SAM riboswitch aptamer (S box leader): a 107-nucleotide RNA from Clostridium thailandense.
Nucleotides: 107
Stems, first nucleotide, its partner, number of pairs: 001107001003105006013041001015040003021031003025084004042076004047072002050067005080099001085096004
Number, partner (000 for none) and nucleotide at each position: 001107u002000g003105c004104u005103u006102a007101u008100c009000a010000a011000g012000a013041g014000a015040g016039g017038c018000g019000g020000a021031g022030g023029g024000a025084c026083u027082g028081g029023c030022c031021c032000u033000a034000u035000g036000a037000a038017g039016c040015c041013c042076g043075g044074c045073a046000a047072c048071c049000a050067g051066u052065a053064u054063u055000a056000u057000u058000u059000a060000u061000a062000u063054a064053a065052u066051a067050c068000a069000u070000u071048g072047g073045u074044g075043c076042c077000a078000a079000u080099u081028c082027c083026a084025g085096c086095a087094g088093c089000g090000a091000a092000g093088g094087c095086u096085g097000a098000g099080a100008g101007a102006u103005g104004a105003g106000g107001a
Lineage of the source: Bacteria > Clostridia > Eubacteriales > Clostridiaceae > Clostridium.